[Rfam]
RNA: MIR159 microRNA precursor family
Organism: Solanum tuberosum
RNA sequence: UAUAUAUGAAGAGAGCUUUCUUCGGUCCACACAUGGGGGGCGAUAGGGUUCAAUUUGCUGCCGACUCAUUCAUCCAAAUGUUGAGGUCUUGAUAGUCGAAUGCCACCUCAGCAACUGAGUGAAUGAAGCGGGAGUACAAGUUGAGUCUUGAGCUUCCUGUACUUGGACUGAAGGGAGCUCCCUCUUACCUUUUU
Numbered sequence: 001u002a003u004a005u006a007u008g009a010a011g012a013g014a015g016c017u018u019u020c021u022u023c024g025g026u027c028c029a030c031a032c033a034u035g036g037g038g039g040g041c042g043a044u045a046g047g048g049u050u051c052a053a054u055u056u057g058c059u060g061c062c063g064a065c066u067c068a069u070u071c072a073u074c075c076a077a078a079u080g081u082u083g084a085g086g087u088c089u090u091g092a093u094a095g096u097c098g099a100a101u102g103c104c105a106c107c108u109c110a111g112c113a114a115c116u117g118a119g120u121g122a123a124u125g126a127a128g129c130g131g132g133a134g135u136a137c138a139a140g141u142u143g144a145g146u147c148u149u150g151a152g153c154u155u156c157c158u159g160u161a162c163u164u165g166g167a168c169u170g171a172a173g174g175g176a177g178c179u180c181c182c183u184c185u186u187a188c189c190u191u192u193u194u
Stems, first nucleotide, its partner, number of pairs: 013180008023170007036157001058134002061131003067125004075117001